A member of the RNA family "Guanidine-I riboswitch aptamer" from Clostridium sp. Maddingley MBC34-26, 96 nucleotides long. For this family Rfam cites "Structural Basis for Ligand Binding to the Guanidine-I Riboswitch" (Reiss et al., Structure, 2017). NCBI's taxonomy places the organism under Bacteria, Bacillati, Eubacteriales, Clostridiaceae, Clostridium. The pairing is the family consensus, mapped onto this sequence. Rfam's curators write: This family represents a conserved RNA structure found upstream of the ykkC and yxkD genes in Bacillus subtilis and related genes in other bacteria.

RNA sequence: AGUUUAGUUUUCUAGGGUUCCGCAGUCUAUAACUGGCUGGUCCGAGAGAAGACGCACAGGAAACUGUGUACACGGAAGGAUAAAAGCCUGGGAGAU
Numbered sequence: 001a002g003u004u005u006a007g008u009u010u011u012c013u014a015g016g017g018u019u020c021c022g023c024a025g026u027c028u029a030u031a032a033c034u035g036g037c038u039g040g041u042c043c044g045a046g047a048g049a050a051g052a053c054g055c056a057c058a059g060g061a062a063a064c065u066g067u068g069u070a071c072a073c074g075g076a077a078g079g080a081u082a083a084a085a086g087c088c089u090g091g092g093a094g095a096u
Stems, first nucleotide, its partner, number of pairs: 007053006015043002020040002022037001023035004054069006071091001073094001077089003